[Rfam]
RNA sequence: UUCGUCUGUGGAAGAAGUGAUUGGACUAUUGGCUUGUCGAAGCUUUGGUCCAGGAAAGUCGCCGGGCCACCUAUCCGCAGAGAUGCGGCCUCGGCACAACGAGAUAGUCUUCUGCUUGGAGAGACAUUAACCGGCUGAGACGCGUGUGGAGCCUUCACGGUCUCUCCAGCAAAGAUAUUCAUGGCCAGUGUAAACUGUAAUUCACUUGGGUCCCCUCAAGGGAUUCCCCAGAACGGGGCUUACUUACACUGACAA
Numbered sequence: 001u002u003c004g005u006c007u008g009u010g011g012a013a014g015a016a017g018u019g020a021u022u023g024g025a026c027u028a029u030u031g032g033c034u035u036g037u038c039g040a041a042g043c044u045u046u047g048g049u050c051c052a053g054g055a056a057a058g059u060c061g062c063c064g065g066g067c068c069a070c071c072u073a074u075c076c077g078c079a080g081a082g083a084u085g086c087g088g089c090c091u092c093g094g095c096a097c098a099a100c101g102a103g104a105u106a107g108u109c110u111u112c113u114g115c116u117u118g119g120a121g122a123g124a125c126a127u128u129a130a131c132c133g134g135c136u137g138a139g140a141c142g143c144g145u146g147u148g149g150a151g152c153c154u155u156c157a158c159g160g161u162c163u164c165u166c167c168a169g170c171a172a173a174g175a176u177a178u179u180c181a182u183g184g185c186c187a188g189u190g191u192a193a194a195c196u197g198u199a200a201u202u203c204a205c206u207u208g209g210g211u212c213c214c215c216u217c218a219a220g221g222g223a224u225u226c227c228c229c230a231g232a233a234c235g236g237g238g239c240u241u242a243c244u245u246a247c248a249c250u251g252a253c254a255a
Stems, first nucleotide, its partner, number of pairs: 002255001004253003008249002011247001015207006022052007031044005056241003060238001062236002076087004088105001090103004107176003113171003117168007133153003142147001209225006
Dot-bracket structure: .(.(((.((.(...((((((.(((((((..(((((....))))).)))))))...[[[.[.[[............((((....))))(.((((......)))).).(((...(((.(((((((.........(((......(....)...)))........))))))))))..))).........................)))))).((((((.....)))))).........]].]]]].....))).))).)
Annotation: A member of the RNA family "RNase MRP" from Brassica oleracea, 255 nucleotides long. The base pairs follow the family's consensus structure, which is taken from published work. Clan: RNaseP clan. The match comes from Rfam's covariance-model search (59 bits). By type it is a ribozyme.